[Rfam]
RNA sequence: CCAGACGGCCGGACGGCCGCUGCCGGGGGCAACCCCGGUGGAGGAAAGUCCGGGCUCCACGGGAAUACGGUGCCGGCUAACGGCCGGCGGGGGCGACCUCAGGGAAAGUGCCACAGAGAACAGACCGCCCGCGCAAGACGGCGACGUCCCGCGGGCAAGGGUGAAACGGGGCGGUAAGAGCGCCCCGCGCCCCCGGCAACGGGGGCGGCACGGCAAACCCCACCGGGAGCAAGACCGAAUAGGGGCGACCGUGGGCGGUCCGCAGGGCCGCGCCGCAGGGGCAUUCCCGCCCCGUCGCCCGGGUUGGUCGCGUGAGGCAUGUCGCGAGACAUGUCCCAGAGGAAUGGCCGUCCCAGCCGCAAGGCUGGACAGAACCCGGCUUACAGGCCGUCUGGCACC
Numbered sequence: 001c002c003a004g005a006c007g008g009c010c011g012g013a014c015g016g017c018c019g020c021u022g023c024c025g026g027g028g029g030c031a032a033c034c035c036c037g038g039u040g041g042a043g044g045a046a047a048g049u050c051c052g053g054g055c056u057c058c059a060c061g062g063g064a065a066u067a068c069g070g071u072g073c074c075g076g077c078u079a080a081c082g083g084c085c086g087g088c089g090g091g092g093g094c095g096a097c098c099u100c101a102g103g104g105a106a107a108g109u110g111c112c113a114c115a116g117a118g119a120a121c122a123g124a125c126c127g128c129c130c131g132c133g134c135a136a137g138a139c140g141g142c143g144a145c146g147u148c149c150c151g152c153g154g155g156c157a158a159g160g161g162u163g164a165a166a167c168g169g170g171g172c173g174g175u176a177a178g179a180g181c182g183c184c185c186c187g188c189g190c191c192c193c194c195g196g197c198a199a200c201g202g203g204g205g206c207g208g209c210a211c212g213g214c215a216a217a218c219c220c221c222a223c224c225g226g227g228a229g230c231a232a233g234a235c236c237g238a239a240u241a242g243g244g245g246c247g248a249c250c251g252u253g254g255g256c257g258g259u260c261c262g263c264a265g266g267g268c269c270g271c272g273c274c275g276c277a278g279g280g281g282c283a284u285u286c287c288c289g290c291c292c293c294g295u296c297g298c299c300c301g302g303g304u305u306g307g308u309c310g311c312g313u314g315a316g317g318c319a320u321g322u323c324g325c326g327a328g329a330c331a332u333g334u335c336c337c338a339g340a341g342g343a344a345u346g347g348c349c350g351u352c353c354c355a356g357c358c359g360c361a362a363g364g365c366u367g368g369a370c371a372g373a374a375c376c377c378g379g380c381u382u383a384c385a386g387g388c389c390g391u392c393u394g395g396c397a398c399c
Stems, first nucleotide, its partner, number of pairs: 001395010011384001012352007020041009046382003050379005055229004063287001065285001068225005073087005088102001089100004103220002108218002110214003125160002127156007168186006187209001188207008233309004243300006278293005316335008